[Rfam]
RNA sequence: UCUAGAACUCGAGAUAUGGGUUGAACACUAAAUAGUGUCUGGGCUGCAGGACAGAUUCGGACUUCUCCAUUGUUGCUAUAAUUUGGACUUGAAAACGGCCUUCUUAGAUGUUGACAUCCACAUGAAAGUUGUAGGCCUAAGUCUUACCUAAUAUG
Number, nucleotide and partner (000 for none) at each position: 001u000002c000003u153004a152005g000006a000007a149008c000009u146010c000011g145012a144013g143014a142015u141016a000017u139018g138019g137020g136021u134022u133023g132024a000025a130026c000027a129028c128029u127030a000031a000032a000033u000034a000035g123036u122037g121038u000039c000040u000041g119042g118043g117044c000045u000046g000047c000048a112049g111050g000051a109052c000053a000054g105055a104056u000057u000058c000059g100060g099061a000062c098063u097064u000065c000066u000067c000068c000069a000070u000071u000072g088073u087074u086075g000076c000077u000078a000079u000080a000081a000082u000083u000084u000085g000086g074087a073088c072089u000090u000091g000092a000093a000094a000095a000096c000097g063098g062099c060100c059101u000102u000103c000104u055105u054106a000107g000108a000109u051110g000111u049112u048113g000114a000115c000116a000117u043118c042119c041120a000121c037122a036123u035124g000125a000126a000127a029128g028129u027130u025131g000132u023133a022134g021135g000136c020137c019138u018139a017140a000141g015142u014143c013144u012145u011146a009147c000148c000149u007150a000151a000152u004153a003154u000155g000
Overview
The family of this 155-nucleotide RNA sequence from Populus tomentosa is "MIR2912 microRNA precursor family". The match comes from Rfam's covariance-model search (90 bits). The base pairs follow the family's consensus structure, which was predicted with RNAalifold.